[Rfam]
RNA sequence: AGGCCUCAAAUAAUGUGUGACUACCCCCUAAAUUUAAGCAUAUUAAUAAGGGGAGGAAAAGAAACUAACAAGGAUUCCCUGAGUAGCUGCGAGCGAAACGGGAAGAGCUCAGCACGUAGGGGCGAUGCACUGCCUGUAUCUGCCCGGUUCCGUGUACUGGAAAGUUCGUUAUCUGCCGUAACCGGUCGCUGGUUCAAGUUCAACUAGAAUGUGGCUUUUACUCCCAGAGAGGGUGAUAGGCCCGUAGAGCGGCGCACCGACGGUAGAAGUGCUUUCCAUGGAGUCGUGUUGCUUGAUAGUGCAGCACAAAGUGGGAGGUAAACUCCUUCUAAAGCUAAAUAUCACCACGAGACCGAUAGCGAACAAGUACCGUGAGGGAAAGUUGAAAAGCACUCUGAAUAGAGAGUCAAAAAGUACGUGAAACUGCCUAGGGCUCAAG
Numbered sequence: 001a002g003g004c005c006u007c008a009a010a011u012a013a014u015g016u017g018u019g020a021c022u023a024c025c026c027c028c029u030a031a032a033u034u035u036a037a038g039c040a041u042a043u044u045a046a047u048a049a050g051g052g053g054a055g056g057a058a059a060a061g062a063a064a065c066u067a068a069c070a071a072g073g074a075u076u077c078c079c080u081g082a083g084u085a086g087c088u089g090c091g092a093g094c095g096a097a098a099c100g101g102g103a104a105g106a107g108c109u110c111a112g113c114a115c116g117u118a119g120g121g122g123c124g125a126u127g128c129a130c131u132g133c134c135u136g137u138a139u140c141u142g143c144c145c146g147g148u149u150c151c152g153u154g155u156a157c158u159g160g161a162a163a164g165u166u167c168g169u170u171a172u173c174u175g176c177c178g179u180a181a182c183c184g185g186u187c188g189c190u191g192g193u194u195c196a197a198g199u200u201c202a203a204c205u206a207g208a209a210u211g212u213g214g215c216u217u218u219u220a221c222u223c224c225c226a227g228a229g230a231g232g233g234u235g236a237u238a239g240g241c242c243c244g245u246a247g248a249g250c251g252g253c254g255c256a257c258c259g260a261c262g263g264u265a266g267a268a269g270u271g272c273u274u275u276c277c278a279u280g281g282a283g284u285c286g287u288g289u290u291g292c293u294u295g296a297u298a299g300u301g302c303a304g305c306a307c308a309a310a311g312u313g314g315g316a317g318g319u320a321a322a323c324u325c326c327u328u329c330u331a332a333a334g335c336u337a338a339a340u341a342u343c344a345c346c347a348c349g350a351g352a353c354c355g356a357u358a359g360c361g362a363a364c365a366a367g368u369a370c371c372g373u374g375a376g377g378g379a380a381a382g383u384u385g386a387a388a389a390g391c392a393c394u395c396u397g398a399a400u401a402g403a404g405a406g407u408c409a410a411a412a413a414g415u416a417c418g419u420g421a422a423a424c425u426g427c428c429u430a431g432g433g434c435u436c437a438a439g
Stems, first nucleotide, its partner, number of pairs: 024055001025053005035042002065072002076103004086094002106336004113154004118149002120145004124140005159277006166271001169268001185258001190252001192250003198215001200214002203212002225229001232242002286307007313330005370377002393404004

A member of the RNA family "Eukaryotic large subunit ribosomal RNA" from Aedes aegypti, 439 nucleotides of a longer RNA. A search with the family's covariance model found it, with a score of 2696 bits. Pairs were carried over by alignment from the consensus structure, which is taken from published work.